[Rfam]
RNA sequence: GGAUAACAGUUUUUGCUAUCUUCGACCAAUAAUGCAAUGACAUGCGAAAUAACUUUUUCAUAUAUCAUUGCAUUAUUGGUCGAAGAUAACAAAACAGUGCAAUCC
Dot-bracket structure: ((((......(((((.(((.((((((((((((((((((((.(((.((((......)))).))).)))))))))))))))))))).))).))))).......))))
Numbered sequence: 001g002g003a004u005a006a007c008a009g010u011u012u013u014u015g016c017u018a019u020c021u022u023c024g025a026c027c028a029a030u031a032a033u034g035c036a037a038u039g040a041c042a043u044g045c046g047a048a049a050u051a052a053c054u055u056u057u058u059c060a061u062a063u064a065u066c067a068u069u070g071c072a073u074u075a076u077u078g079g080u081c082g083a084a085g086a087u088a089a090c091a092a093a094a095c096a097g098u099g100c101a102a103u104c105c
Stems, first nucleotide, its partner, number of pairs: 001105004011094005017088003021084020042063003046059004
A member of the RNA family "MIR6274 microRNA precursor family" from Prunus yedoensis, 105 nucleotides long. A search with the family's covariance model found it, with a score of 83 bits. Its family is annotated with miRNA-mediated post-transcriptional gene silencing and RISC complex in the Gene Ontology.